[Rfam]
RNA sequence: GUGUGUGUGAGGAGUAAGAACGAAAGACAAAAACUCUUGGGGUCGAAACAUGGCCAGACUCCCAAGGGUCUUUUUCUGUU
Numbered sequence: 001g002u003g004u005g006u007g008u009g010a011g012g013a014g015u016a017a018g019a020a021c022g023a024a025a026g027a028c029a030a031a032a033a034c035u036c037u038u039g040g041g042g043u044c045g046a047a048a049c050a051u052g053g054c055c056a057g058a059c060u061c062c063c064a065a066g067g068g069u070c071u072u073u074u075u076c077u078g079u080u
Base pairs, nucleotide, nucleotide: 029075030074031073032072033071034068035067039063040062041061042059043058044057
Cyano-1 RNA: an 80-nucleotide RNA from Rippkaea orientalis.
Rfam 15.1 lists 283 matches to the family in 194 species.
The base pairs follow the family's consensus structure, which is taken from published work.
NCBI's taxonomy places the organism under Bacteria, Oscillatoriophycideae, Chroococcales, Rippkaea, Rippkaea orientalis.